[Rfam]
RNA sequence: ACAAAGUGGAGACAAGUAAACCACUUCAAAAACAGGGAGUAACUGAAAAUCCAAAAGAGUAAGACAGAC
Numbered sequence: 001a002c003a004a005a006g007u008g009g010a011g012a013c014a015a016g017u018a019a020a021c022c023a024c025u026u027c028a029a030a031a032a033c034a035g036g037g038a039g040u041a042a043c044u045g046a047a048a049a050u051c052c053a054a055a056a057g058a059g060u061a062a063g064a065c066a067g068a069c
Base pairs, nucleotide, nucleotide: 006024007023008022009021036052037051038050043063044062
Rfam assigns this 69-nucleotide RNA from Sphingobacteriales bacterium UPWRP_1 to the family "DUF805 RNA". The family is grouped with related families in Rfam's "DUF805 clan". A search with the family's covariance model found it, with a score of 67 bits. Rfam classes the family as a cis-regulatory element. The family has 46 seed sequences and 281 matches in Rfam 15.1. NCBI's taxonomy places the organism under Bacteria, Pseudomonadati, Bacteroidota, Sphingobacteriia, Sphingobacteriales.